Shown here is a 102-nucleotide RNA from Luteimonas sp. JM171, a member of the family "Glycine riboswitch aptamer".

RNA sequence: CAGCACAACUCUGGAGAGACCGGCUUCGGGCCGGCGCCGAAGGGGCACGAGGAGCAGCACCUGCGCCUCCAAACUCUCAGGCAAAAGGACAGAGGGGCAAAC
Number, nucleotide and partner (000 for none) at each position: 001c000002a000003g000004c000005a000006c097007a000008a000009c094010u093011c092012u091013g090014g000015a000016g000017a000018g000019a000020c034021c033022g032023g031024c000025u000026u000027c000028g000029g000030g000031c023032c022033g021034g020035c000036g082037c081038c080039g078040a077041a000042g000043g076044g075045g074046c000047a000048c000049g069050a068051g067052g066053a000054g000055c000056a000057g000058c000059a000060c000061c000062u000063g000064c000065g000066c052067c051068u050069c049070c000071a000072a000073a000074c045075u044076c043077u040078c039079a000080g038081g037082c036083a000084a000085a000086a000087g000088g000089a000090c013091a012092g011093a010094g009095g000096g000097g006098c000099a000100a000101a000102c000